The record is a 118-nucleotide sequence from Geosporobacter ferrireducens, which matches "PyrR binding site" in Rfam. Rfam classes the family as a cis-regulatory element.
RNA sequence: UUUUCCUUUAAAAUGGUCCAGAGAGGCCAAAAAGGAGGUGAAGUAAGAUGCGGGAUUUCCUGUAUCUCUAUGAUCUAUGCAACCAAACCUUCUGCCUCUGACAGAAGGUUUAUUUUUU
Number, nucleotide and partner (000 for none) at each position: 001u000002u000003u037004u036005c035006c034007u033008u032009u031010a000011a000012a000013a000014u029015g028016g027017u026018c025019c000020a000021g000022a000023g000024a000025g018026g017027c016028c015029a014030a000031a009032a008033a007034g006035g005036a004037g003038g000039u000040g000041a000042a000043g000044u000045a000046a067047g066048a065049u064050g063051c062052g061053g060054g059055a000056u000057u000058u000059c054060c053061u052062g051063u050064a049065u048066c047067u046068c000069u000070a000071u000072g000073a000074u000075c000076u000077a000078u000079g000080c000081a000082a000083c000084c000085a111086a110087a109088c108089c107090u106091u105092c104093u103094g102095c000096c100097u000098c000099u000100g096101a000102c094103a093104g092105a091106a090107g089108g088109u087110u086111u085112a000113u000114u000115u000116u000117u000118u000